[Rfam]
RNA sequence: CUCUCCCGCCCUCUCUCCCAACCCUUGUACCAGUGCCAACUGUAGUCUCCACUGGUACAGAGGAUGGAAGGGUGGGUGGUCAGA
Numbered sequence: 001c002u003c004u005c006c007c008g009c010c011c012u013c014u015c016u017c018c019c020a021a022c023c024c025u026u027g028u029a030c031c032a033g034u035g036c037c038a039a040c041u042g043u044a045g046u047c048u049c050c051a052c053u054g055g056u057a058c059a060g061a062g063g064a065u066g067g068a069a070g071g072g073u074g075g076g077u078g079g080u081c082a083g084a
Base pairs, nucleotide, nucleotide: 010075011074014071015070016068017067018066023060026059027058028057029056030055031054032053
RNA: mir-150 microRNA precursor family